Shown here is a 79-nucleotide RNA from Salmonella enterica, a member of the family "isrJ Hfq binding RNA". The literature on the family includes a 2008 paper in Nucleic Acids Res by Padalon-Brauch et al., "Small RNAs encoded within genetic islands of Salmonella typhimurium show host-induced expression and role in virulence". It is one of the family's seed sequences. It is annotated as a small RNA.
[Rfam]
RNA sequence: UGUAAAUCUGAUAUCGUCGUCAUAGUUUCAAUCGUCGACCAAGCAAAUUCAAGCCCUGCGGAUAACACCGCGGGGCUUU
Dot-bracket structure: ...............((((.(............).))))...........((((((((((........)))))))))).
Numbered sequence: 001u002g003u004a005a006a007u008c009u010g011a012u013a014u015c016g017u018c019g020u021c022a023u024a025g026u027u028u029c030a031a032u033c034g035u036c037g038a039c040c041a042a043g044c045a046a047a048u049u050c051a052a053g054c055c056c057u058g059c060g061g062a063u064a065a066c067a068c069c070g071c072g073g074g075g076c077u078u079u
Stems, first nucleotide, its partner, number of pairs: 016039004021034001051078010